RNA sequence: UGGCUAUAGAAUAACUUAUUCUGUGGCCACUUUGAGUUACGAUAAUUACCAUGCUAAUUUACGAGAUUAUAGUAACUCCUUACUAAGUGAUUUACUAUAACAUUAUCGUAAAUAUCACCGUGAGUUGUAGUAACACGAGUAUCGUAAAUGCAUAUUCAUGUUAUCGUAAAUUGAUACAAAUAUUAUCGUAAUAGAAUAAGUUAUUCUAUGACCA
Numbered sequence: 001u002g003g004c005u006a007u008a009g010a011a012u013a014a015c016u017u018a019u020u021c022u023g024u025g026g027c028c029a030c031u032u033u034g035a036g037u038u039a040c041g042a043u044a045a046u047u048a049c050c051a052u053g054c055u056a057a058u059u060u061a062c063g064a065g066a067u068u069a070u071a072g073u074a075a076c077u078c079c080u081u082a083c084u085a086a087g088u089g090a091u092u093u094a095c096u097a098u099a100a101c102a103u104u105a106u107c108g109u110a111a112a113u114a115u116c117a118c119c120g121u122g123a124g125u126u127g128u129a130g131u132a133a134c135a136c137g138a139g140u141a142u143c144g145u146a147a148a149u150g151c152a153u154a155u156u157c158a159u160g161u162u163a164u165c166g167u168a169a170a171u172u173g174a175u176a177c178a179a180a181u182a183u184u185a186u187c188g189u190a191a192u193a194g195a196a197u198a199a200g201u202u203a204u205u206c207u208a209u210g211a212c213c214a
Stems, first nucleotide, its partner, number of pairs: 001214003005210019037191010052176002055173008065165003069161003072157001074155001080147004087142003091138002093132009103122001108116001
RNA: MIR6217 microRNA precursor family